The record is a 247-nucleotide RNA from Apiosordaria backusii, which matches "Small nucleolar RNA snR191" in Rfam. The literature on the family includes a 2003 paper in RNA by Badis et al., "A snoRNA that guides the two most conserved pseudouridine modifications within rRNA confers a growth advantage in yeast". The family's RNA type in Rfam is H/ACA-box small nucleolar RNA. The family is grouped with related families in Rfam's "SNORA74 clan".
RNA sequence: CCCCAGGGGUUUUGUCAGGAUGCUUCCGCACACUCGUGUGCUACUGCAAUGGAAGUCGUGCGUUACAUCCCUGGGAGAGCGAUAUCCACCUCCAACUUCUCUGGCCUGGUCAUCAGGUUGGGGAUUGUCAGACUCCGUCUUGGGGUUCUGGCGCCGGAUACCGGACGUGUUUCAUACGAGUUGAAAACCGCCGCGCCCUUUACUGGGCAACUUCGUUGCGGUUUUCUUAGUGAUGUUUCAUACAUAU
Numbered sequence: 001c002c003c004c005a006g007g008g009g010u011u012u013u014g015u016c017a018g019g020a021u022g023c024u025u026c027c028g029c030a031c032a033c034u035c036g037u038g039u040g041c042u043a044c045u046g047c048a049a050u051g052g053a054a055g056u057c058g059u060g061c062g063u064u065a066c067a068u069c070c071c072u073g074g075g076a077g078a079g080c081g082a083u084a085u086c087c088a089c090c091u092c093c094a095a096c097u098u099c100u101c102u103g104g105c106c107u108g109g110u111c112a113u114c115a116g117g118u119u120g121g122g123g124a125u126u127g128u129c130a131g132a133c134u135c136c137g138u139c140u141u142g143g144g145g146u147u148c149u150g151g152c153g154c155c156g157g158a159u160a161c162c163g164g165a166c167g168u169g170u171u172u173c174a175u176a177c178g179a180g181u182u183g184a185a186a187a188c189c190g191c192c193g194c195g196c197c198c199u200u201u202a203c204u205g206g207g208c209a210a211c212u213u214c215g216u217u218g219c220g221g222u223u224u225u226c227u228u229a230g231u232g233a234u235g236u237u238u239c240a241u242a243c244a245u246a247u
Base pairs, nucleotide, nucleotide: 003074004073005072006071007070018061020059021058022057023055024054025053026052027051029040030039031038032037085165086164087163090122091121092120094118096116097115101109102108103107127152128151129150130149131148132146133145134144135143136142137141167241168240169239173235174234175233183226184225185224186223188221189220190219191218195208196207197206198205
A search with the family's covariance model found it, with a score of 59 bits. The organism belongs to Apiosordaria, within Eukaryota.